The record is an 87-nucleotide sequence, which matches "L4-Archaeoglobi ribosomal protein leades" in Rfam. The family's RNA type in Rfam is cis-regulatory leader. The base pairs follow the family's consensus structure, which is taken from published work.
RNA sequence: CUGAUAAGCACGCAUGGGUCGACGUUUGAACAAACGAGCCCGUUCCAAUUGCUCAAAUUAUAGGGCGGAUGGAUGCGUUAUUGUCAG
Numbered sequence: 001c002u003g004a005u006a007a008g009c010a011c012g013c014a015u016g017g018g019u020c021g022a023c024g025u026u027u028g029a030a031c032a033a034a035c036g037a038g039c040c041c042g043u044u045c046c047a048a049u050u051g052c053u054c055a056a057a058u059u060a061u062a063g064g065g066c067g068g069a070u071g072g073a074u075g076c077g078u079u080a081u082u083g084u085c086a087g
Base pairs, nucleotide, nucleotide: 001087002086003085004084005083010078011077012076013075015042016041017040018039023036024035025034026033027032044073045072046071047070049068050067051066052065053064054063